[Rfam]
RNA sequence: UUUAUGAAUAAUAUGCGGCUGUAGACAGCAGGUUUAUGUAAAAGUUUGAUGAAACUUUCCUGCCGAGGCCGGAGAAUUGCAAGAUAUAACUACUAACUAGUUAUUAUGCGGCCUCCGGUGUUUACACCGUGGGUCGCUUUUUGGUUUCAAG
Numbered sequence: 001u002u003u004a005u006g007a008a009u010a011a012u013a014u015g016c017g018g019c020u021g022u023a024g025a026c027a028g029c030a031g032g033u034u035u036a037u038g039u040a041a042a043a044g045u046u047u048g049a050u051g052a053a054a055c056u057u058u059c060c061u062g063c064c065g066a067g068g069c070c071g072g073a074g075a076a077u078u079g080c081a082a083g084a085u086a087u088a089a090c091u092a093c094u095a096a097c098u099a100g101u102u103a104u105u106a107u108g109c110g111g112c113c114u115c116c117g118g119u120g121u122u123u124a125c126a127c128c129g130u131g132g133g134u135c136g137c138u139u140u141u142u143g144g145u146u147u148c149a150a151g
Base pairs, nucleotide, nucleotide: 028063029062030061031060032059109136110135111134112133113132114131116129117128118127
RNA: Ribosomal protein L10 leader